[Rfam]
RNA sequence: AACGGACCCGCUGGCGCGGGUGGCUUCUCCGGGCGCCUAUCCCUCGGCAAACC
Number, nucleotide and partner (000 for none) at each position: 001a000002a000003c000004g000005g000006a021007c020008c019009c018010g017011c016012u000013g000014g000015c000016g011017c010018g009019g008020g007021u006022g000023g000024c000025u000026u000027c000028u000029c047030c046031g045032g044033g043034c000035g000036c000037c000038u000039a000040u000041c000042c000043c033044u032045c031046g030047g029048c000049a000050a000051a000052c000053c000
A member of the RNA family "sul1 RNA" from Devosia sp. LC5, 53 nucleotides long. It is annotated as a riboswitch. A search with the family's covariance model found it, with a score of 54 bits. The family's consensus secondary structure is taken from published work. Taxonomically the source falls in Devosia (Bacteria, Pseudomonadota, Hyphomicrobiales, Devosiaceae).